Shown here is a 161-nucleotide sequence from Populus alba, a member of the family "MIR2912 microRNA precursor family".
Taxonomically the source falls in Populus (Eukaryota, Streptophyta, Mesangiospermae, Saliceae).
Gene Ontology terms of the family: RISC complex and miRNA-mediated post-transcriptional gene silencing.

RNA sequence: UCUAGAACUCGAAAUAUGGGCUGAUUACUGAACAAUGUCUGGACUGCAGGACAGAUUCAGACUUCUCUGUUGUUGCUAUAGUUUGGAAUUGAAAACGGCCUUUUUAAAUCUUGGACUUCACAUGAAAGUUGUAGGCUUAUGUCUUACCGAAUUUUUCUAAA
Numbered sequence: 001u002c003u004a005g006a007a008c009u010c011g012a013a014a015u016a017u018g019g020g021c022u023g024a025u026u027a028c029u030g031a032a033c034a035a036u037g038u039c040u041g042g043a044c045u046g047c048a049g050g051a052c053a054g055a056u057u058c059a060g061a062c063u064u065c066u067c068u069g070u071u072g073u074u075g076c077u078a079u080a081g082u083u084u085g086g087a088a089u090u091g092a093a094a095a096c097g098g099c100c101u102u103u104u105u106a107a108a109u110c111u112u113g114g115a116c117u118u119c120a121c122a123u124g125a126a127a128g129u130u131g132u133a134g135g136c137u138u139a140u141g142u143c144u145u146a147c148c149g150a151a152u153u154u155u156u157c158u159a160a161a
Stems, first nucleotide, its partner, number of pairs: 003159005009151001011145002014142007021134003027129003035123003041119003045115001048112004054105002060099001062098002068092001073087002